[Rfam]
RNA sequence: UGGUCUUCUCGGCCUUUUGGCUAAGAUCUAUUUUUAUCAGUUUAAUAUUUGAUAUAUGUGACCUAUUGGGUCACACGAUAUUAAAUUACUUUUUUGAGGGAGAGUUGUCAUCACAGUGGUUUGCUAUUGGACUUCUCAUGUGUCGCCAAUGCGUUGUACUAUUGCAUUGGUUAGGCGCACCAAAA
Number, nucleotide and partner (000 for none) at each position: 001u000002g000003g000004u000005c000006u000007u026008c025009u024010c000011g022012g021013c020014c019015u000016u000017u000018u000019g014020g013021c012022u011023a000024a009025g008026a007027u000028c000029u000030a000031u000032u000033u000034u000035u054036a053037u052038c051039a050040g049041u000042u000043u000044a000045a000046u000047a000048u000049u040050u039051g038052a037053u036054a035055u000056a000057u000058g074059u073060g072061a071062c070063c069064u068065a000066u000067u000068g064069g063070g062071u061072c060073a059074c058075a000076c000077g000078a000079u000080a000081u000082u000083a000084a000085a000086u000087u000088a000089c000090u000091u000092u000093u000094u000095u000096g000097a000098g000099g000100g000101a000102g137103a136104g135105u000106u000107g132108u131109c130110a000111u000112c000113a000114c000115a000116g127117u126118g125119g124120u000121u000122u000123g000124c119125u118126a117127u116128u000129g000130g109131a108132c107133u000134u000135c104136u103137c102138a000139u000140g178141u177142g176143u175144c174145g000146c000147c169148a168149a167150u166151g165152c164153g000154u000155u000156g000157u000158a000159c000160u000161a000162u000163u000164g152165c151166a150167u149168u148169g147170g000171u000172u000173a000174g144175g143176c142177g141178c140179a000180c000181c000182a000183a000184a000185a000
A member of the RNA family "U2 spliceosomal RNA" from Trifolium medium, 185 nucleotides long. Rfam describes the family as follows. U2 is a small nuclear RNA (snRNA) component of the spliceosome (involved in pre-mRNA splicing). The source organism's lineage runs through Eukaryota, Viridiplantae, Embryophyta, Mesangiospermae and Trifolium. The base pairs follow the family's consensus structure, which is taken from published work.